[Rfam]
Shown here is a 66-nucleotide RNA from Toxocara canis, a member of the family "Small nucleolar RNA SNORD2". Rfam 15.1 lists 1,116 matches to the family in 660 species. The base pairs follow the family's consensus structure, which was predicted with WAR. NCBI's taxonomy places the organism under Eukaryota, Eumetazoa, Nematoda, Ascaridoidea, Toxocara.
RNA sequence: GUGCGCAAUGAUGGUAUACCAUCUUUCGGGUCUGAUCUUGAUGAGACAGUUUGUUGCUGAGCGCAC
Numbered sequence: 001g002u003g004c005g006c007a008a009u010g011a012u013g014g015u016a017u018a019c020c021a022u023c024u025u026u027c028g029g030g031u032c033u034g035a036u037c038u039u040g041a042u043g044a045g046a047c048a049g050u051u052u053g054u055u056g057c058u059g060a061g062c063g064c065a066c
Stems, first nucleotide, its partner, number of pairs: 001066006